Source information: This 133-nucleotide RNA sequence from Bacillus sp. 1NLA3E belongs to the Rfam family "PyrR binding site". It is annotated as a cis-regulatory element. Rfam's curators write: This family represents the PyrR binding site and terminator structure. The base pairs follow the family's consensus structure, which is taken from published work.
[Rfam]
RNA sequence: AACACCUUUAAUACAGUCCCGAGAGGCUGAGAAGGAAACGGAUAUCUGAUGGAUGGUAACGAGAUUUAUUCCACCAGAUUAGCUCAAUGUGUUCGUACACCCUCUCACUCAAUCGGUGAGAGGGUUUUUUGAU
Dot-bracket structure: ....(((((....(((((......))))).)))))........(((((.((((..(..........)..)))).)))))...............(.(.((((((((((.......)))))))))).).)....
Numbered sequence: 001a002a003c004a005c006c007u008u009u010a011a012u013a014c015a016g017u018c019c020c021g022a023g024a025g026g027c028u029g030a031g032a033a034g035g036a037a038a039c040g041g042a043u044a045u046c047u048g049a050u051g052g053a054u055g056g057u058a059a060c061g062a063g064a065u066u067u068a069u070u071c072c073a074c075c076a077g078a079u080u081a082g083c084u085c086a087a088u089g090u091g092u093u094c095g096u097a098c099a100c101c102c103u104c105u106c107a108c109u110c111a112a113u114c115g116g117u118g119a120g121a122g123g124g125u126u127u128u129u130u131g132a133u
Stems, first nucleotide, its partner, number of pairs: 005035005014029005044079005050073004056067001095129001097127001099125010